[Rfam]
RNA sequence: CAAGCUCCAUCUAUAAAUGGAUAAGGUUUUGAUUUGAUCUUAGUGUAGUCGAGUUUUUGAAAGUAAAGGGGCAAUAACCAAUUUCUUGUUUUAUCAAGGAGUUGCUAUUGCUCCUUU
Numbered sequence: 001c002a003a004g005c006u007c008c009a010u011c012u013a014u015a016a017a018u019g020g021a022u023a024a025g026g027u028u029u030u031g032a033u034u035u036g037a038u039c040u041u042a043g044u045g046u047a048g049u050c051g052a053g054u055u056u057u058u059g060a061a062a063g064u065a066a067a068g069g070g071g072c073a074a075u076a077a078c079c080a081a082u083u084u085c086u087u088g089u090u091u092u093a094u095c096a097a098g099g100a101g102u103u104g105c106u107a108u109u110g111c112u113c114c115u116u117u
Stems, first nucleotide, its partner, number of pairs: 006021005065117012081102001083100005
This 117-nucleotide RNA sequence belongs to the Rfam family "Plastid-psbA-1 3UTR RNA". It is one of the family's seed sequences. Plastid psbA-1 is a non-coding RNA (ncRNA) present in plastids. It was identified in inverted repeat sequences in the 3 prime untranslate region (3UTR) of photosystem II quinone-binding protein (psbA). Pairs were carried over by alignment from the consensus structure, which was predicted with LocARNA.